[Rfam]
RNA sequence: UUUGGGAUAUGAUGCCACCACAAUAUUAUAAUCUAAGGCAGCAGCAUUGCUGUGUACAUUUUUUGCACGUCAGUCUGAUCCCAAC
Numbered sequence: 001u002u003u004g005g006g007a008u009a010u011g012a013u014g015c016c017a018c019c020a021c022a023a024u025a026u027u028a029u030a031a032u033c034u035a036a037g038g039c040a041g042c043a044g045c046a047u048u049g050c051u052g053u054g055u056a057c058a059u060u061u062u063u064u065g066c067a068c069g070u071c072a073g074u075c076u077g078a079u080c081c082c083a084a085c
Stems, first nucleotide, its partner, number of pairs: 002084006

A member of the RNA family "Small nucleolar RNA Z122" from Eucalyptus grandis, 85 nucleotides long. The literature on the family includes a 1999 paper in Mol Cell Biol by Qu et al., "Seven novel methylation guide small nucleolar RNAs are processed from a common polycistronic transcript by Rat1p and RNase III in yeast". The base pairs follow the family's consensus structure, which was predicted with PFOLD. Rfam 15.1 lists 822 matches to the family in 247 species. It is annotated as a C/D-box small nucleolar RNA. The source organism's lineage runs through Eukaryota, Spermatophyta, Pentapetalae, Myrtoideae and Eucalyptus.